[Rfam]
RNA sequence: CCAUGAUAGACGGGGAAUUAGCGAUGCCUUGUAACCUGCAAUUCGCUAUAGCAGGGUUGAAUUCCCGUUCAAGGAUUUUUGUUUGUAUAGCCUGCCCCAAGCAAGUGGCGGUGACGAUAGGGUCCCAUACAAUGUAUACUUGUGAAUCGUGUCAGGUCUUGACGGAAGCAGCACUAAGCAAGUUCAUGCGUGUGUUAUGGGGGUGCCUUAUCUGAGUUAACUACUUGGGUACCGUAUGUGAACAAUAAUUCGAAAGCGGGUUCAUGG
Numbered sequence: 001c002c003a004u005g006a007u008a009g010a011c012g013g014g015g016a017a018u019u020a021g022c023g024a025u026g027c028c029u030u031g032u033a034a035c036c037u038g039c040a041a042u043u044c045g046c047u048a049u050a051g052c053a054g055g056g057u058u059g060a061a062u063u064c065c066c067g068u069u070c071a072a073g074g075a076u077u078u079u080u081g082u083u084u085g086u087a088u089a090g091c092c093u094g095c096c097c098c099a100a101g102c103a104a105g106u107g108g109c110g111g112u113g114a115c116g117a118u119a120g121g122g123u124c125c126c127a128u129a130c131a132a133u134g135u136a137u138a139c140u141u142g143u144g145a146a147u148c149g150u151g152u153c154a155g156g157u158c159u160u161g162a163c164g165g166a167a168g169c170a171g172c173a174c175u176a177a178g179c180a181a182g183u184u185c186a187u188g189c190g191u192g193u194g195u196u197a198u199g200g201g202g203g204u205g206c207c208u209u210a211u212c213u214g215a216g217u218u219a220a221c222u223a224c225u226u227g228g229g230u231a232c233c234g235u236a237u238g239u240g241a242a243c244a245a246u247a248a249u250u251c252g253a254a255a256g257c258g259g260g261u262u263c264a265u266g267g
Stems, first nucleotide, its partner, number of pairs: 001267006009058003012030004017025003035055005064260006073251005080244010093231002097228005105221002107218003116212008124201006130192002133190005138183006149174004157166003